[Rfam]
Shown here is an 81-nucleotide RNA sequence from Nostoc sp. FACHB-888, a member of the family "Photosynthesis regulatory RNA1". By type it is a small RNA. Rfam's curators write: Formerly known as Syr1 discovered in Synechocystis sp PCC 6803, is a regulatory factor controlling photosynthetic functions.
RNA sequence: GAAAAGCAGAUUUCGAUAUAGCUAUCUCUCAUCGACAUUUAGACUUCUCCCAUCUGCCUCGGCUAUCAAGUCGGGGUUUUU
Numbered sequence: 001g002a003a004a005a006g007c008a009g010a011u012u013u014c015g016a017u018a019u020a021g022c023u024a025u026c027u028c029u030c031a032u033c034g035a036c037a038u039u040u041a042g043a044c045u046u047c048u049c050c051c052a053u054c055u056g057c058c059u060c061g062g063c064u065a066u067c068a069a070g071u072c073g074g075g076g077u078u079u080u081u
Stems, first nucleotide, its partner, number of pairs: 056077008
The organism belongs to Nostoc, within Bacteria.
Its family is annotated with regulation of translation and regulation of photosynthesis in the Gene Ontology.
The family has 13 seed sequences and 92 matches in Rfam 15.1.